[Rfam]
RNA sequence: UGUCUCCUCCAAUUUUCCAGCAAAAUUGGAUUGCCGCCCGCCACCGCAAGGUUGCGGGCGUUUUUUU
Numbered sequence: 001u002g003u004c005u006c007c008u009c010c011a012a013u014u015u016u017c018c019a020g021c022a023a024a025a026u027u028g029g030a031u032u033g034c035c036g037c038c039c040g041c042c043a044c045c046g047c048a049a050g051g052u053u054g055c056g057g058g059c060g061u062u063u064u065u066u067u
Stems, first nucleotide, its partner, number of pairs: 008030008035060007

The record is a 67-nucleotide RNA from Massilia eurypsychrophila, which matches "Betaproteobacteria toxic small RNA" in Rfam. A search with the family's covariance model found it, with a score of 56 bits. From the family's description: Overexpression in amino aid rich medium attenuates growth, suggesting role in repressing amino acid intake and metabolism. The family has 51 seed sequences and 951 matches in Rfam 15.1. Lineage of the source: Bacteria > Pseudomonadati > Pseudomonadota > Burkholderiales > Massilia. The literature on the family includes a 2017 paper in Sci Rep by Sass et al., "Identification of small RNAs abundant in Burkholderia cenocepacia biofilms reveal putative regulators with a potential role in carbon and iron metabolism".